[Rfam]
RNA sequence: GCAGAUUCGGCUCGACCCCCCCGGAGCCGAAUCCAGGACGGCCCCCGUCACCCCCUGACGGGGGUCGUUCCCU
Numbered sequence: 001g002c003a004g005a006u007u008c009g010g011c012u013c014g015a016c017c018c019c020c021c022c023g024g025a026g027c028c029g030a031a032u033c034c035a036g037g038a039c040g041g042c043c044c045c046c047g048u049c050a051c052c053c054c055c056u057g058a059c060g061g062g063g064g065u066c067g068u069u070c071c072c073u
Stems, first nucleotide, its partner, number of pairs: 002036001004033010037069013